[Rfam]
RNA sequence: CCUCUGGAAAGCCCGGGGGAUCGUUCGCGAUCCAUCGGCACCGACGGAGUAAGGCGUUUGCCCGGCGACCAGCCGAACGGGCGCGCUGAAUCUCUCAGGUCAUCAGACAGAGG
Numbered sequence: 001c002c003u004c005u006g007g008a009a010a011g012c013c014c015g016g017g018g019g020a021u022c023g024u025u026c027g028c029g030a031u032c033c034a035u036c037g038g039c040a041c042c043g044a045c046g047g048a049g050u051a052a053g054g055c056g057u058u059u060g061c062c063c064g065g066c067g068a069c070c071a072g073c074c075g076a077a078c079g080g081g082c083g084c085g086c087u088g089a090a091u092c093u094c095u096c097a098g099g100u101c102a103u104c105a106g107a108c109a110g111a112g113g
Stems, first nucleotide, its partner, number of pairs: 001113006013038004040100003043096002047094003053087005